[Rfam]
RNA: L2-Alphaproteobacteria ribosomal protein leader
RNA sequence: UGGGACCUUCGGGGCCCUCUAACCACAGCGGACCUACGGGGCCGCAGACAAGCAAAACGGAAGACAGAGA
Numbered sequence: 001u002g003g004g005a006c007c008u009u010c011g012g013g014g015c016c017c018u019c020u021a022a023c024c025a026c027a028g029c030g031g032a033c034c035u036a037c038g039g040g041g042c043c044g045c046a047g048a049c050a051a052g053c054a055a056a057a058c059g060g061a062a063g064a065c066a067g068a069g070a
Stems, first nucleotide, its partner, number of pairs: 002017003006014003028045004033040001